[Rfam]
RNA sequence: AAACCAUCAAGAGAGACCGAGGGACUGGCCCGAUGACGUUUCAGCAACCUACCAUUAUGGUGUGGUGCUAACUCCAGAUAGAUGGGAG
Numbered sequence: 001a002a003a004c005c006a007u008c009a010a011g012a013g014a015g016a017c018c019g020a021g022g023g024a025c026u027g028g029c030c031c032g033a034u035g036a037c038g039u040u041u042c043a044g045c046a047a048c049c050u051a052c053c054a055u056u057a058u059g060g061u062g063u064g065g066u067g068c069u070a071a072c073u074c075c076a077g078a079u080a081g082a083u084g085g086g087a088g
Stems, first nucleotide, its partner, number of pairs: 004085005013042005021031003025077004043069004048065002050062004073080001

Source information:
A member of the RNA family "SAM riboswitch aptamer (S box leader)" from Cetobacterium somerae, 88 nucleotides long. The source organism's lineage runs through Bacteria, Fusobacteriales, Fusobacteriaceae, Cetobacterium and Cetobacterium somerae. The SAM riboswitch is found upstream of a number of genes which code for proteins involved in methionine or cysteine biosynthesis in Gram-positive bacteria. Gene Ontology term of the family: regulation of gene expression. It scores 63 bits against the family's covariance model.